[Rfam]
A member of the RNA family "Clostridiales-1 RNA" from Eubacterium sp. CAG:161, 170 nucleotides long. A search with the family's covariance model found it, with a score of 98 bits. NCBI's taxonomy places the organism under Bacteria, Bacillota, Clostridia, Eubacteriales, Eubacterium.
RNA sequence: UAAAUCCAAAGGUUGAAAUAAAAUAACUUUUCCAGCUCGCUGAGAAAAGUUAUUUUAUUAACAACCUGCAAACACAUAAGGAUGAAAAAAUUUUCGCAAGAAAAUUUUGAAAAUCCGCAUGUGUGCAGAAUUGCGCAAGUUGCGAAGCAACGAAGCAAUUCGUGGAUUUA
Numbered sequence: 001u002a003a004a005u006c007c008a009a010a011g012g013u014u015g016a017a018a019u020a021a022a023a024u025a026a027c028u029u030u031u032c033c034a035g036c037u038c039g040c041u042g043a044g045a046a047a048a049g050u051u052a053u054u055u056u057a058u059u060a061a062c063a064a065c066c067u068g069c070a071a072a073c074a075c076a077u078a079a080g081g082a083u084g085a086a087a088a089a090a091u092u093u094u095c096g097c098a099a100g101a102a103a104a105u106u107u108u109g110a111a112a113a114u115c116c117g118c119a120u121g122u123g124u125g126c127a128g129a130a131u132u133g134c135g136c137a138a139g140u141u142g143c144g145a146a147g148c149a150a151c152g153a154a155g156c157a158a159u160u161c162g163u164g165g166a167u168u169u170a
Stems, first nucleotide, its partner, number of pairs: 001170007011066004017059016033042003072124006080116004087108009128161007139151004

The family's RNA type in Rfam is small RNA.